[Rfam]
RNA sequence: GCGUCGAGCGGAUCGAUCGCGCGGGUCACUACGAGGUAGUCGCGCAAGACGAUAGCGUGCCGGUUGUC
Number, nucleotide and partner (000 for none) at each position: 001g000002c000003g000004u063005c062006g061007a000008g000009c000010g000011g030012a000013u028014c000015g027016a026017u025018c024019g000020c000021g000022c000023g000024g018025g017026u016027c015028a013029c000030u011031a000032c000033g000034a000035g056036g000037u054038a053039g000040u052041c051042g050043c000044g000045c000046a000047a000048g000049a000050c042051g041052a040053u038054a037055g000056c035057g000058u000059g000060c000061c006062g005063g004064u000065u000066g000067u000068c000
This 68-nucleotide sequence from Gordonia effusa belongs to the Rfam family "ASdes TB sRNA". It is annotated as a small RNA. A reference for the family is Arnvig and Young (2009), "Identification of small RNAs in Mycobacterium tuberculosis", Mol Microbiol. The organism belongs to Gordonia effusa, within Bacteria. It scores 53 bits against the family's covariance model.